[Rfam]
RNA sequence: AAGGCACAUCCCGAAAAGCCUCAAAAGAGUAGGGU
Numbered sequence: 001a002a003g004g005c006a007c008a009u010c011c012c013g014a015a016a017a018g019c020c021u022c023a024a025a026a027g028a029g030u031a032g033g034g035u
Base pairs, nucleotide, nucleotide: 002021003020004019005018010034011033012032